This 207-nucleotide RNA from Paraburkholderia acidisoli belongs to the Rfam family "Burkholderia sRNA 11". By type it is a small RNA. NCBI's taxonomy places the organism under Bacteria, Pseudomonadota, Betaproteobacteria, Burkholderiaceae, Paraburkholderia.
RNA sequence: UUCCUCCCGCCAAGCACCGGUUCUUGAGCGGGAUUCGACGGCCGCUAUCAUAGCGAGCCUUCAGGGCCGCAAGCGCAGUCCGUGUCGAUCACGGCAGUCGCAUGUGGCGGAGUGGACCGAACGAUAGUCGGAAGCACGCCGCCACCGCCCGAAUGCGCCGCGUGCGCAAGAAAAAAGGCCUUCAUCCGACGAUGAAGGCCUUUUACA
Numbered sequence: 001u002u003c004c005u006c007c008c009g010c011c012a013a014g015c016a017c018c019g020g021u022u023c024u025u026g027a028g029c030g031g032g033a034u035u036c037g038a039c040g041g042c043c044g045c046u047a048u049c050a051u052a053g054c055g056a057g058c059c060u061u062c063a064g065g066g067c068c069g070c071a072a073g074c075g076c077a078g079u080c081c082g083u084g085u086c087g088a089u090c091a092c093g094g095c096a097g098u099c100g101c102a103u104g105u106g107g108c109g110g111a112g113u114g115g116a117c118c119g120a121a122c123g124a125u126a127g128u129c130g131g132a133a134g135c136a137c138g139c140c141g142c143c144a145c146c147g148c149c150c151g152a153a154u155g156c157g158c159c160g161c162g163u164g165c166g167c168a169a170g171a172a173a174a175a176a177g178g179c180c181u182u183c184a185u186c187c188g189a190c191g192a193u194g195a196a197g198g199c200c201u202u203u204u205a206c207a
Stems, first nucleotide, its partner, number of pairs: 002038002005033006013025002040059003043055004064150004073101003076097001080094005107142003112137003117131004155167004173204014
Background:
Its family is annotated with bacterial biofilm matrix in the Gene Ontology.